[Rfam]
The family of this 88-nucleotide RNA sequence from Sporolactobacillus inulinus is "BsrC". The source organism's lineage runs through Bacteria, Bacillati, Caryophanales, Sporolactobacillus and Sporolactobacillus inulinus. The family's consensus secondary structure was predicted with CMfinder. The literature on the family includes a 2008 paper in Gene by Saito et al., "Novel small RNA-encoding genes in the intergenic regions of Bacillus subtilis". Rfam describes the family as follows. The 301 nucleotide sequence from Kouji Nakamura has been trimmed to a highly conserved ~85 nucleotide long core to form this family.
RNA sequence: GGGCGCCAAAACAACGAAAGCCCUACCUCUCUUCCAUCCUUACGGUUCCUCUGACCGAGCCAGUAUGAUCCAACGCAACAAUAAAAUC
Numbered sequence: 001g002g003g004c005g006c007c008a009a010a011a012c013a014a015c016g017a018a019a020g021c022c023c024u025a026c027c028u029c030u031c032u033u034c035c036a037u038c039c040u041u042a043c044g045g046u047u048c049c050u051c052u053g054a055c056c057g058a059g060c061c062a063g064u065a066u067g068a069u070c071c072a073a074c075g076c077a078a079c080a081a082u083a084a085a086a087u088c
Stems, first nucleotide, its partner, number of pairs: 035067002039063002041059001043057005